[Rfam]
Annotation
The record is a 106-nucleotide sequence, which matches "drum RNA" in Rfam. The base pairs follow the family's consensus structure, which is taken from published work.

RNA sequence: GAAUAUUGAAGCGGCAGGCGUUCCGUCAUGCGUUUACCGUGGAGUUCCAAAGGGUUGUGCGUAUUCCUCAAGGCGGAUAGGCGAGAGCCAAAAGAAAACGCACUGC
Numbered sequence: 001g002a003a004u005a006u007u008g009a010a011g012c013g014g015c016a017g018g019c020g021u022u023c024c025g026u027c028a029u030g031c032g033u034u035u036a037c038c039g040u041g042g043a044g045u046u047c048c049a050a051a052g053g054g055u056u057g058u059g060c061g062u063a064u065u066c067c068u069c070a071a072g073g074c075g076g077a078u079a080g081g082c083g084a085g086a087g088c089c090a091a092a093a094g095a096a097a098a099c100g101c102a103c104u105g106c
Stems, first nucleotide, its partner, number of pairs: 001047004011040004016035006023076004059101003080089003